Notes:
A member of the RNA family "tRNA" from Globodera rostochiensis, 73 nucleotides long. Rfam links the family to the GO term triplet codon-amino acid adaptor activity. It is annotated as a transfer RNA.

RNA sequence: CGGUCGGUAGUUCAGUCGGUUAGAACACUGGUCCGGUCAACCAGAGACGCCGGUUCAAUUCCGGCCCGCCCCC
Numbered sequence: 001c002g003g004u005c006g007g008u009a010g011u012u013c014a015g016u017c018g019g020u021u022a023g024a025a026c027a028c029u030g031g032u033c034c035g036g037u038c039a040a041c042c043a044g045a046g047a048c049g050c051c052g053g054u055u056c057a058a059u060u061c062c063g064g065c066c067c068g069c070c071c072c073c
Stems, first nucleotide, its partner, number of pairs: 002071002005068003010026004028044005049065005